Nucleotides: 067
Stems, first nucleotide, its partner, number of pairs: 004064009015053004020048009
Number, partner (000 for none) and nucleotide at each position: 001000g002000u003000g004064g005063c006062a007061c008060u009059c010058a011057a012056a013000c014000u015053g016052u017051g018050g019000g020048g021047g022046c023045a024044c025043u026042u027041u028040c029000u030000g031000u032000u033000c034000u035000a036000a037000g038000a039000g040028g041027a042026a043025a044024g045023u046022g047021c048020c049000g050018c051017c052016a053015u054000u055000u056012u057011u058010u059009g060008a061007g062006u063005g064004u065000c066000a067000c